[Rfam]
Rfam assigns this 68-nucleotide RNA sequence from Panicum virgatum to the family "Small nucleolar RNA R66".
RNA sequence: UCCCGUGCAUCUUUGAGACCUGAGAUCUUUCUUCCUUGAUGAAAAUCACAAGCAUGAUCGCUGAGGAC
Dot-bracket structure: (((...................(((.......))..)...........................))).
snoR66 is a C/D box small nucleolar RNA, which acts as a methylation guide for 18S ribosomal RNA in plants. snoR66 has been alternatively named snoZ269 in rice. On this family, see Chen et al., Nucleic Acids Res 2003: "The high diversity of snoRNAs in plants: identification and comparative study of 120 snoRNA genes from Oryza sativa". Rfam 15.1 lists 584 matches to the family in 219 species. The match comes from Rfam's covariance-model search (72 bits).